[Rfam]
RNA sequence: GCGGCGCCGGUUCACCCCGUCACACCGCGGGCGGGGACCCGGCGUCC
Numbered sequence: 001g002c003g004g005c006g007c008c009g010g011u012u013c014a015c016c017c018c019g020u021c022a023c024a025c026c027g028c029g030g031g032c033g034g035g036g037a038c039c040c041g042g043c044g045u046c047c
Base pairs, nucleotide, nucleotide: 003047004046007042008041009040010039015036016035017034018033019032021031023029
Dot-bracket structure: ..((..((((....(((((.(.(.....).))))))..))))...))
L31-Actinobacteria ribosomal protein leader: a 47-nucleotide sequence from Haloechinothrix alba. The family's RNA type in Rfam is cis-regulatory leader. A search with the family's covariance model found it, with a score of 42 bits.